[Rfam]
RNA: skipping-rope RNA
RNA sequence: UGGAUUUGAAGUCGGAAAUGGCUCCCGACACGCUACCUGCAAAGGCAGUUACCAGAGAUACAGGACACGCCGCCCUGUCAAAACCA
Numbered sequence: 001u002g003g004a005u006u007u008g009a010a011g012u013c014g015g016a017a018a019u020g021g022c023u024c025c026c027g028a029c030a031c032g033c034u035a036c037c038u039g040c041a042a043a044g045g046c047a048g049u050u051a052c053c054a055g056a057g058a059u060a061c062a063g064g065a066c067a068c069g070c071c072g073c074c075c076u077g078u079c080a081a082a083a084c085c086a
Stems, first nucleotide, its partner, number of pairs: 001086003005082004011029005019072004031055001032049003060078005